Annotation
A member of the RNA family "Alphaproteobacteria transfer-messenger RNA" from Roseovarius indicus, 351 nucleotides long. The organism belongs to Roseovarius, within Bacteria.

[Rfam]
RNA sequence: CCCCUUUCAAAAACCAAAUCAAAGGCCUAUGUUCGCAAUGUUCCUUCGGGAACUAUGGGCAUAAACGCGCUCGUAAUAAGCGGAUCGGACCCGGGGGCGGUACCCGGCGGCUCCACCAAAUCACCCGUCGUUGGGGGGAUCUGGGGCCGAAACAGGAUCGACGAACGUGUAAAGGAGUGGCUUUGUCCCGGUGAGGUACCACCGUUAUCGGUCCGUACAAGCAUAAUUGCCAACGACAAUCGUGCUCCGGUUGCAGUUGCCGCGUAAGCGGUAACAAGACCGAAAUCUAAGCCCUUGCCUCUAGCAAGGUAAGGCGGGGUUCGCAGGCACCUGGCAACAGAAGCCUGCACU
Number, nucleotide and partner (000 for none) at each position: 001c000002c000003c000004c000005u000006u000007u000008c000009a000010a000011a000012a000013a000014c000015c000016a000017a000018a000019u000020c000021a000022a000023a000024g000025g000026c000027c000028u000029a000030u000031g000032u000033u000034c000035g000036c000037a000038a000039u000040g053041u052042u051043c050044c049045u000046u000047c000048g000049g044050g043051a042052a041053c040054u000055a000056u000057g188058g187059g186060c185061a184062u000063a000064a000065a000066c000067g181068c180069g178070c177071u176072c175073g000074u000075a000076a000077u000078a000079a000080g000081c167082g166083g000084a000085u164086c163087g162088g000089a000090c000091c107092c106093g105094g104095g103096g000097g000098c000099g000100g000101u000102a000103c095104c094105c093106g092107g091108c149109g148110g147111c146112u145113c144114c143115a000116c000117c000118a000119a000120a000121u000122c000123a000124c000125c000126c000127g000128u000129c000130g000131u000132u000133g000134g000135g000136g000137g000138g000139a000140u000141c000142u000143g114144g113145g112146g111147c110148c109149g108150a000151a000152a000153c000154a000155g000156g000157a000158u000159c000160g000161a000162c087163g086164a085165a000166c082167g081168u000169g000170u000171a000172a000173a000174g000175g072176a071177g070178u069179g000180g068181c067182u000183u000184u061185g060186u059187c058188c057189c204190g203191g202192u201193g000194a000195g214196g213197u000198a212199c211200c210201a192202c191203c190204g189205u000206u000207a000208u000209c000210g200211g199212u198213c196214c195215g000216u000217a000218c000219a000220a000221g000222c000223a000224u000225a000226a000227u000228u000229g000230c000231c000232a000233a000234c000235g000236a000237c000238a000239a000240u000241c000242g000243u000244g000245c000246u000247c000248c000249g000250g000251u000252u000253g000254c000255a000256g000257u000258u000259g000260c000261c000262g000263c000264g000265u000266a000267a000268g000269c000270g000271g000272u000273a000274a000275c000276a000277a000278g000279a000280c000281c000282g000283a000284a000285a000286u000287c000288u000289a000290a000291g000292c000293c000294c000295u000296u000297g000298c000299c000300u000301c000302u000303a000304g000305c000306a000307a000308g000309g000310u000311a000312a000313g000314g000315c000316g000317g332318g331319g330320u329321u000322c000323g348324c347325a346326g345327g344328c343329a320330c319331c318332u317333g000334g000335c000336a000337a000338c000339a000340g000341a000342a000343g328344c327345c326346u325347g324348c323349a000350c000351u000
A search with the family's covariance model found it, with a score of 303 bits.